[Rfam]
RNA sequence: UUGUCCUGGCCUAUGCUUUCCAUGCUCCUCUGCACUCAGUUGUAAGAGGGGUGUCUGCAGGACACACAGUAAUCUCCCUCUCAGUUUAUUAGCGCUGUCCAGAGCACAGGUCUGGCUCUUAAAGGCACCAGAGGACAAU
Numbered sequence: 001u002u003g004u005c006c007u008g009g010c011c012u013a014u015g016c017u018u019u020c021c022a023u024g025c026u027c028c029u030c031u032g033c034a035c036u037c038a039g040u041u042g043u044a045a046g047a048g049g050g051g052u053g054u055c056u057g058c059a060g061g062a063c064a065c066a067c068a069g070u071a072a073u074c075u076c077c078c079u080c081u082c083a084g085u086u087u088a089u090u091a092g093c094g095c096u097g098u099c100c101a102g103a104g105c106a107c108a109g110g111u112c113u114g115g116c117u118c119u120u121a122a123a124g125g126c127a128c129c130a131g132a133g134g135a136c137a138a139u
Stems, first nucleotide, its partner, number of pairs: 002064007010057001024054002028050004077134005084126004091119002094116003097112001099110002102107001